A member of the RNA family "SAM riboswitch aptamer (S box leader)" from Megasphaera paucivorans, 99 nucleotides long.
[Rfam]
RNA sequence: AUAUCAUCCAGAGCAGUUGAGGGACUGGCCCUAUGACACUGCGGCAACCUUCCGAAAGGAAAGGUGCCAAUUCCAGCGAAAUAUUUCGAAAGAUGAUUG
Numbered sequence: 001a002u003a004u005c006a007u008c009c010a011g012a013g014c015a016g017u018u019g020a021g022g023g024a025c026u027g028g029c030c031c032u033a034u035g036a037c038a039c040u041g042c043g044g045c046a047a048c049c050u051u052c053c054g055a056a057a058g059g060a061a062a063g064g065u066g067c068c069a070a071u072u073c074c075a076g077c078g079a080a081a082u083a084u085u086u087c088g089a090a091a092g093a094u095g096a097u098u099g
Base pairs, nucleotide, nucleotide: 003097004096005095006094007093008092013042014041015040016039017038021031022030023029025076026075027074028073043068044067045066046065048064049063050061051060052059053058072091077088078087079086080085
Dot-bracket structure: ..((((((....(((((...(((.[[[[)))......)))))((((.((((((....)))).))))))...(]]]]((((....))))..)))))))..